A member of the RNA family "Small nucleolar RNA SNORA20" from Myotis davidii, 122 nucleotides long.
From the family's description: ACA20 is a member of the H/ACA class of snoRNA that guide the sites of modification of uridines to pseudouridines.
Rfam 15.1 lists 437 matches to the family in 157 species.
It scores 60 bits against the family's covariance model.
RNA sequence: UUUCCACAUAACUUUUCUAAAAGCUGGCAAUGUUAUACGCAUGGGAUAAAAUAACAUUAGACCAUUGUCAAUUGAGAUGGAGUAACCAUUUCAUCUCUUCUGCAUGCAUGGUCUAGACAGAU
Numbered sequence: 001u002u003u004c005c006a007c008a009u010a011a012c013u014u015u016u017c018u019a020a021a022a023g024c025u026g027g028c029a030a031u032g033u034u035a036u037a038c039g040c041a042u043g044g045g046a047u048a049a050a051a052u053a054a055c056a057u058u059a060g061a062c063c064a065u066u067g068u069c070a071a072u073u074g075a076g077a078u079g080g081a082g083u084a085a086c087c088a089u090u091u092c093a094u095c096u097c098u099u100c101u102g103c104a105u106g107c108a109u110g111g112u113c114u115a116g117a118c119a120g121a122u
Base pairs, nucleotide, nucleotide: 003046004045005044007043008042009041023033024032057116058115059114060113061112062111063110064109066104067103068102074097075096076095077094078093079092080091081090082089083088